[Rfam]
RNA: small nucleolar RNA snoR143
RNA sequence: GAGCAUCGUCCGUAAUAGGCUGCAUCAAACUUGGUCCAGUCUCGAGCGACAGUGCAUAAAUCAAAAGCUGGUUUUAAUCAACGGCGGCCAAACAACUGCUGAGAUGGAUCCACAGAUGGGUGCUUCUGUGCCUGUCUACUAUUCCCAUCUCACAAUU
Numbered sequence: 001g002a003g004c005a006u007c008g009u010c011c012g013u014a015a016u017a018g019g020c021u022g023c024a025u026c027a028a029a030c031u032u033g034g035u036c037c038a039g040u041c042u043c044g045a046g047c048g049a050c051a052g053u054g055c056a057u058a059a060a061u062c063a064a065a066a067g068c069u070g071g072u073u074u075u076a077a078u079c080a081a082c083g084g085c086g087g088c089c090a091a092a093c094a095a096c097u098g099c100u101g102a103g104a105u106g107g108a109u110c111c112a113c114a115g116a117u118g119g120g121u122g123c124u125u126c127u128g129u130g131c132c133u134g135u136c137u138a139c140u141a142u143u144c145c146c147a148u149c150u151c152a153c154a155a156u157u
Base pairs, nucleotide, nucleotide: 003055004054005053006052007048008047009046011044012043017042018041019040020039021038022037024035025034026033027032101151102150103149104148105147106146107145119133120132